[Rfam]
RNA: Ribosomal protein L20 leader
RNA sequence: UUUAACAAGAAGAAACAGCCGUUUCUCACCUAACAGUAAUGCUAGUUAGGUUAAUUAGUAAUUUAAACUUGUUACUAUUAAGGACGGCAUUUGCUGUCCUUUUUAUUAUUU
Numbered sequence: 001u002u003u004a005a006c007a008a009g010a011a012g013a014a015a016c017a018g019c020c021g022u023u024u025c026u027c028a029c030c031u032a033a034c035a036g037u038a039a040u041g042c043u044a045g046u047u048a049g050g051u052u053a054a055u056u057a058g059u060a061a062u063u064u065a066a067a068c069u070u071g072u073u074a075c076u077a078u079u080a081a082g083g084a085c086g087g088c089a090u091u092u093g094c095u096g097u098c099c100u101u102u103u104u105a106u107u108a109u110u111u
Stems, first nucleotide, its partner, number of pairs: 011026006028051003033046002035043002083098006